[Rfam]
RNA sequence: CCUCGGGCUCCCGGGGACACUAACAGAGCAACUGCGCCCCGGGAGAGUGCGCCGAGCUCCCUAAGGGCUGCAGCGCGCACGGCGGGACCAGGAGCAGCU
Numbered sequence: 001c002c003u004c005g006g007g008c009u010c011c012c013g014g015g016g017a018c019a020c021u022a023a024c025a026g027a028g029c030a031a032c033u034g035c036g037c038c039c040c041g042g043g044a045g046a047g048u049g050c051g052c053c054g055a056g057c058u059c060c061c062u063a064a065g066g067g068c069u070g071c072a073g074c075g076c077g078c079a080c081g082g083c084g085g086g087a088c089c090a091g092g093a094g095c096a097g098c099u
Stems, first nucleotide, its partner, number of pairs: 007095005014089002018085001020082002028076002032073004036068004041061005048054002